This 81-nucleotide RNA from Clupea harengus belongs to the Rfam family "mir-31 microRNA precursor family". It scores 64 bits against the family's covariance model. The organism belongs to Clupea, within Eukaryota. The family has 75 seed sequences and 1,181 matches in Rfam 15.1. Pairs were carried over by alignment from the consensus structure, which was predicted with RNAalifold. Its Rfam clan is "mir-31 microRNA precursor family". Rfam links the family to the GO terms RISC complex and gene silencing by miRNA. The literature on the family includes a 2023 paper in bioRxiv [Preprint] by Ma et al., "Structure of pre-miR-31 reveals an active role in Dicer processing".
RNA sequence: UAGAGAAAAGAUGGCAAGAUGUUGGCAUAGCUGUAGUUGUGACUGCCCUGCUAUGCCUCCAUAUUGCCAUCGUUUGCUUCC
Number, nucleotide and partner (000 for none) at each position: 001u000002a000003g000004a000005g000006a075007a074008a073009a000010g071011a070012u069013g068014g067015c066016a065017a064018g000019a062020u061021g060022u000023u000024g057025g056026c055027a054028u053029a052030g051031c050032u000033g000034u000035a000036g000037u000038u000039g000040u000041g000042a000043c000044u000045g000046c000047c000048c000049u000050g031051c030052u029053a028054u027055g026056c025057c024058u000059c000060c021061a020062u019063a000064u017065u016066g015067c014068c013069a012070u011071c010072g000073u008074u007075u006076g000077c000078u000079u000080c000081c000